[Rfam]
A member of the RNA family "Gammaprotebacteria rimP leader" from Moritella sp. Urea-trap-13, 96 nucleotides long. Pairs were carried over by alignment from the consensus structure, which is taken from published work. The literature on the family includes a 2010 paper in Genome Biol by Naville and Gautheret, "Premature terminator analysis sheds light on a hidden world of bacterial transcriptional attenuation".

RNA sequence: ACCACGCAAGUGGAUUACAAGGUCUAGUAGUAAGAAGCCUCGCCUUAUAGUCGGGGCUUUUUUAUUUUUUAAAUUACGGGCAUAUGCCCUUUUUUU
Number, nucleotide and partner (000 for none) at each position: 001a000002c000003c000004a000005c000006g000007c000008a000009a000010g000011u000012g000013g000014a000015u000016u000017a000018c000019a000020a000021g000022g000023u000024c000025u000026a000027g000028u000029a000030g000031u000032a000033a000034g060035a059036a058037g057038c056039c055040u054041c053042g052043c000044c000045u000046u000047a000048u000049a000050g000051u000052c042053g041054g040055g039056g038057c037058u036059u035060u034061u000062u000063u000064a000065u000066u000067u000068u000069u000070u000071a000072a000073a000074u000075u000076a000077c000078g089079g088080g087081c086082a000083u000084a000085u000086g081087c080088c079089c078090u000091u000092u000093u000094u000095u000096u000
It is annotated as a cis-regulatory leader. Lineage of the source: Bacteria > Pseudomonadati > Pseudomonadota > Gammaproteobacteria > Moritella.